The record is a 124-nucleotide RNA sequence from Mus spicilegus, which matches "Small nucleolar RNA SNORA17" in Rfam. Clan: SNORA17 clan. A search with the family's covariance model found it, with a score of 61 bits. On this family, see Ofengand and Bakin, J Mol Biol 1997: "Mapping to nucleotide resolution of pseudouridine residues in large subunit ribosomal RNAs from representative eukaryotes, prokaryotes, archaebacteria, mitochondria and chloroplasts". NCBI's taxonomy places the organism under Eukaryota, Mammalia, Euarchontoglires, Muridae, Mus. The family's RNA type in Rfam is H/ACA-box small nucleolar RNA.

RNA sequence: UCUACCCUUAGAUGCAUUGCUGGUGUGUCAUGAGUGCAUUAGUAAACUGCAGAAAAGAGAGGGGCUGUGUCUAAUGCUCAAUGUUUUAACCUAUAAACAUCUGAAUGAUUAGAAGCCUAACAUU
Numbered sequence: 001u002c003u004a005c006c007c008u009u010a011g012a013u014g015c016a017u018u019g020c021u022g023g024u025g026u027g028u029c030a031u032g033a034g035u036g037c038a039u040u041a042g043u044a045a046a047c048u049g050c051a052g053a054a055a056a057g058a059g060a061g062g063g064g065c066u067g068u069g070u071c072u073a074a075u076g077c078u079c080a081a082u083g084u085u086u087u088a089a090c091c092u093a094u095a096a097a098c099a100u101c102u103g104a105a106u107g108a109u110u111a112g113a114a115g116c117c118u119a120a121c122a123u124u
Stems, first nucleotide, its partner, number of pairs: 002052002005049001008045003013038003019035003024030002059121001062118005068112001075107002078104003082099005